RNA sequence: UCGCCGGAGACACCGGGCAGACGAAGGUGGGGGACCCAGUGGCCGCGAUCCGGCCCGGUCGUCGUGAGACGACCUCGGGGUGAAGCCGAGUUUCUCGGCCGGGCAGCCUGACGCCCGAACCCGACAGCUAACCCCACAAGCGCCGUCAGGAGAGGAU
Number, nucleotide and partner (000 for none) at each position: 001u024002c023003g022004c000005c000006g000007g000008a000009g000010a000011c000012a000013c000014c000015g000016g000017g000018c000019a000020g000021a000022c003023g002024a001025a000026g000027g137028u136029g135030g134031g133032g132033g000034a000035c000036c000037c077038a000039g000040u000041g000042g000043c000044c000045g000046c000047g000048a000049u000050c000051c000052g000053g000054c000055c000056c000057g000058g000059u000060c000061g000062u000063c000064g000065u000066g000067a000068g000069a000070c000071g000072a000073c000074c000075u000076c000077g037078g122079g121080g120081u000082g000083a000084a000085g000086c098087c097088g096089a095090g000091u000092u000093u000094c000095u089096c088097g087098g086099c000100c000101g116102g115103g114104c113105a000106g000107c000108c000109u000110g000111a000112c000113g104114c103115c102116c101117g000118a000119a000120c080121c079122c078123g000124a000125c000126a000127g000128c000129u000130a000131a000132c032133c031134c030135c029136a028137c027138a000139a000140g000141c000142g000143c000144c000145g000146u000147c000148a000149g000150g000151a000152g000153a000154g000155g000156a000157u000

The record is a 157-nucleotide RNA from Mobilicoccus pelagius, which matches "c-di-AMP riboswitch aptamer (ydaO/yuaA leader)" in Rfam.